[Rfam]
Notes: The family of this 109-nucleotide RNA from Miscanthus lutarioriparius is "MIR5565 microRNA precursor family". The organism belongs to Miscanthus, within Eukaryota. Rfam 15.1 lists 3,346 matches to the family in 5 species.
RNA sequence: GUAGUCAGACUCAAAUCAAUCCAUAUGUAUUAGGGUGGAUUGGAGUGGAACUUGAAAUAAAUUCCACCUCAAUCUAUCCCAACACAUGUGGAUUGAGUUAAAUCAGAGA
Numbered sequence: 001g002u003a004g005u006c007a008g009a010c011u012c013a014a015a016u017c018a019a020u021c022c023a024u025a026u027g028u029a030u031u032a033g034g035g036u037g038g039a040u041u042g043g044a045g046u047g048g049a050a051c052u053u054g055a056a057a058u059a060a061a062u063u064c065c066a067c068c069u070c071a072a073u074c075u076a077u078c079c080c081a082a083c084a085c086a087u088g089u090g091g092a093u094u095g096a097g098u099u100a101a102a103u104c105a106g107a108g109a
Stems, first nucleotide, its partner, number of pairs: 005107002008104002011101001013099002016096013030082002035077009045067003